Background:
The family of this 45-nucleotide RNA from Haemophilus influenzae is "PreQ1 (pre queuosine) riboswitch aptamer".
[Rfam]
RNA sequence: CCCCCCGUAGUUCGCAAACCUCCUACAAUAAAAAACUAGGUAAAA
Numbered sequence: 001c002c003c004c005c006c007g008u009a010g011u012u013c014g015c016a017a018a019c020c021u022c023c024u025a026c027a028a029u030a031a032a033a034a035a036c037u038a039g040g041u042a043a044a045a
Stems, first nucleotide, its partner, number of pairs: 007026004016037001
Its family is annotated with queuosine biosynthetic process in the Gene Ontology.